[Rfam]
RNA sequence: GCGUGGCUGCGCGGCUCGUCAGGAAACUAUAUCCCCGGGGCCUUAUCAAUCCUUAAGGGAGCUGUCCCCGACCAGACCCGUGGGUUUGGUCACACGGCGCCCACCUACGUUGUAGGUCCCGGGAUUGUUCAACUCCAACGGCCGAGGUGGCUACGCA
Dot-bracket structure: .(((((((((.((((.(((............((((.((((((..............(((.(((((....(((((((((....)))))))))..))))).)))............)))))))))).............)))))))..)))))))))..
RNA: 6S / SsrS RNA